Overview: Shown here is a 64-nucleotide sequence, a member of the family "pemK RNA". Rfam classes the family as a cis-regulatory element.
[Rfam]
Nucleotides: 064
Base pairs, nucleotide, nucleotide: 012061013025014024015023016022026047027046028045030043031042032041048060049059050058
Number, partner (000 for none) and nucleotide at each position: 001000a002000c003000a004000a005000u006000g007000a008000u009000a010000c011000u012061u013025c014024c015023g016022u017000a018000a019000u020000u021000c022016g023015c024014g025013g026047u027046c028045c029000g030043g031042c032041c033000a034000u035000a036000a037000a038000g039000a040000a041032g042031g043030c044000g045028g046027g047026a048060u049059g050058g051000u052000u053000a054000a055000a056000u057000u058050c059049c060048a061012a062000u063000a064000g
The base pairs follow the family's consensus structure, which is taken from published work.